Rfam assigns this 307-nucleotide RNA from Batrachochytrium dendrobatidis to the family "Metazoan signal recognition particle RNA". The base pairs follow the family's consensus structure, which is taken from published work.
[Rfam]
RNA sequence: GUUGGGUACAGUCGCGUGUGCCUGUAACCGAAGCCGGGACUGGGAUAUGAAUGUACGCGCUGUGGAAUUUCGGGCCUUGGUUGUUCUUCGGAACAGUUUGGUCUUGCAGAGAGUCAGUCCAUGAUGAACUUUGAGUUCAACAUUGGCACUCUUGCGGAAGCAGGGUGUCGAGGUUGUUAAAGAGCUGUGGAAAGCGUGAGGCUAGAAAUAGAGCAGCGAAAAGCAGCCGCUUGAAGUGGUGUUGCGGAUAGCUGGCUUGAGAGAUUCGCCUUGGCUUGCCACGUCGAGUAUCAGACUUCCAUCCCUU
Numbered sequence: 001g002u003u004g005g006g007u008a009c010a011g012u013c014g015c016g017u018g019u020g021c022c023u024g025u026a027a028c029c030g031a032a033g034c035c036g037g038g039a040c041u042g043g044g045a046u047a048u049g050a051a052u053g054u055a056c057g058c059g060c061u062g063u064g065g066a067a068u069u070u071c072g073g074g075c076c077u078u079g080g081u082u083g084u085u086c087u088u089c090g091g092a093a094c095a096g097u098u099u100g101g102u103c104u105u106g107c108a109g110a111g112a113g114u115c116a117g118u119c120c121a122u123g124a125u126g127a128a129c130u131u132u133g134a135g136u137u138c139a140a141c142a143u144u145g146g147c148a149c150u151c152u153u154g155c156g157g158a159a160g161c162a163g164g165g166u167g168u169c170g171a172g173g174u175u176g177u178u179a180a181a182g183a184g185c186u187g188u189g190g191a192a193a194g195c196g197u198g199a200g201g202c203u204a205g206a207a208a209u210a211g212a213g214c215a216g217c218g219a220a221a222a223g224c225a226g227c228c229g230c231u232u233g234a235a236g237u238g239g240u241g242u243u244g245c246g247g248a249u250a251g252c253u254g255g256c257u258u259g260a261g262a263g264a265u266u267c268g269c270c271u272u273g274g275c276u277u278g279c280c281a282c283g284u285c286g287a288g289u290a291u292c293a294g295a296c297u298u299c300c301a302u303c304c305c306u307u
Base pairs, nucleotide, nucleotide: 001040002039003038004023005022006021007020008019009018010017028037029036030035042305043304044303045302046301049298050297053291054290055289056288058286059285061283062282063281064280065279071278072277073276074275075274076273079270080269081268083266087263088262089261111258112257113256114255115254116253117252118251119247120246122244123243124242125241126240128237129236130235131234132233133232134231135230136229138176139175140174141173143171144170145169146168147167148166149165150164152163153162154161155160177181184227185226186225187224188223195218196217197216202211203210204209

Rfam describes the family as follows. The signal recognition particle (SRP) is a universally conserved ribonucleoprotein.